[Rfam]
Nucleotides: 052
Base pairs, nucleotide, nucleotide: 008052009051010050011049012048013047015042016041017040018039019038020037021036022035023034024033025032
Number, partner (000 for none) and nucleotide at each position: 001000u002000u003000u004000u005000u006000u007000a008052g009051g010050g011049a012048a013047a014000u015042u016041c017040u018039g019038g020037c021036c022035u023034u024033c025032c026000c027000a028000c029000a030000g031000u032025g033024g034023g035022a036021g037020g038019c039018c040017a041016g042015g043000g044000a045000a046000u047013u048012u049011u050010c051009u052008u
This 52-nucleotide RNA from Lentivirus humimdef1 belongs to the Rfam family "HIV Ribosomal frameshift signal". The base pairs follow the family's consensus structure, which is taken from published work. Rfam classes the family as a frameshift element. The sequence is in the family's curated seed alignment. Taxonomically the source falls in Lentivirus humimdef1 (Viruses, Riboviria, Artverviricota, Lentivirus). About the family: This family represents the HIV Ribosomal frameshift signal. HIV uses a system called -1 ribosomal frameshifting to produce the required ratio of Gag and Gag-Pol polyproteins. The stem-loop structure of the frameshift signal is thought to impede the ribosome and cause slippage in the 5' direction, this causes the -1 frameshift and translation then continues in the new frame. The literature on the family includes a 2004 paper in J Virol by Biswas et al., "The human immunodeficiency virus type 1 ribosomal frameshifting site is an invariant sequence determinant and an important target for antiviral therapy".